Annotation: A member of the RNA family "Plastid-ycf3 group II-D1 intron" from Azima tetracantha, 48 nucleotides long. Pairs were carried over by alignment from the consensus structure, which was predicted with LocARNA. Rfam 15.1 lists 1,488 matches to the family in 559 species. From the family's description: Plastid rpl16 is a non-coding RNA (ncRNA) recognised in plastids. It was recognised in and intronic region of a ribosome rpl16 gene. For this family Rfam cites "Retrograde signaling in plants: A critical review focusing on the GUN pathway and beyond" (Richter et al., Plant Commun, 2023).
RNA sequence: AUUCCUUCUGUUGUGUAUCUACGAUUAAUGCAACCUCAAAUGCUUCAA
Dot-bracket structure: .........((((........))))......(.(.......).)....